[Rfam]
Rfam assigns this 74-nucleotide sequence from Punica granatum to the family "tRNA". A search with the family's covariance model found it, with a score of 61 bits. The base pairs follow the family's consensus structure, which is taken from published work.
RNA sequence: GACCGCAUAGCGCAGUGGAUUAGCACGUCUGACUUCGGAUCAGAAGGUCGUGGGUUCGACUCCCACUGUGGUCG
Numbered sequence: 001g002a003c004c005g006c007a008u009a010g011c012g013c014a015g016u017g018g019a020u021u022a023g024c025a026c027g028u029c030u031g032a033c034u035u036c037g038g039a040u041c042a043g044a045a046g047g048u049c050g051u052g053g054g055u056u057c058g059a060c061u062c063c064c065a066c067u068g069u070g071g072u073c074g
Stems, first nucleotide, its partner, number of pairs: 001073007010026001012024002028044005050066005
Dot-bracket structure: (((((((..(.((.........)).).(((((.......))))).....(((((.......)))))))))))).